[Rfam]
RNA sequence: UCCCCCACAGUCCUCCGGUCCUCGUUUCUCGCAAGAGAUGUCUAUCGCAGACUGCUCGUCUUUUUCUGGUUACCCUUCCAUAUGUCGCUCCCGAGCCUGUAACAGGACCUCGUGAAUGCCGCAGCUGGAUCAUGGCGGGUAGCGCGUUCUGUAGAGGACGUACCAGGCAGAUGGGUAAACGAGUCUCGGAACUUAACCCUAAGAAGAUAU
Numbered sequence: 001u002c003c004c005c006c007a008c009a010g011u012c013c014u015c016c017g018g019u020c021c022u023c024g025u026u027u028c029u030c031g032c033a034a035g036a037g038a039u040g041u042c043u044a045u046c047g048c049a050g051a052c053u054g055c056u057c058g059u060c061u062u063u064u065u066c067u068g069g070u071u072a073c074c075c076u077u078c079c080a081u082a083u084g085u086c087g088c089u090c091c092c093g094a095g096c097c098u099g100u101a102a103c104a105g106g107a108c109c110u111c112g113u114g115a116a117u118g119c120c121g122c123a124g125c126u127g128g129a130u131c132a133u134g135g136c137g138g139g140u141a142g143c144g145c146g147u148u149c150u151g152u153a154g155a156g157g158a159c160g161u162a163c164c165a166g167g168c169a170g171a172u173g174g175g176u177a178a179a180c181g182a183g184u185c186u187c188g189g190a191a192c193u194u195a196a197c198c199c200u201a202a203g204a205a206g207a208u209a210u
Base pairs, nucleotide, nucleotide: 009193010192011191015189016188017187018186
Ascomycota telomerase RNA: a 210-nucleotide part of an RNA from Fusarium longipes. By type it is a non-coding RNA gene. The family has 4 seed sequences and 475 matches in Rfam 15.1. Gene Ontology terms of the family: telomerase activity, telomerase catalytic core complex and telomere maintenance via telomerase. Clan: Telomerase clan. A reference for the family is Qi et al. (2013), "The common ancestral core of vertebrate and fungal telomerase RNAs", Nucleic Acids Res. Lineage of the source: Eukaryota > Fungi > Ascomycota > sordariomyceta > Fusarium sambucinum species complex.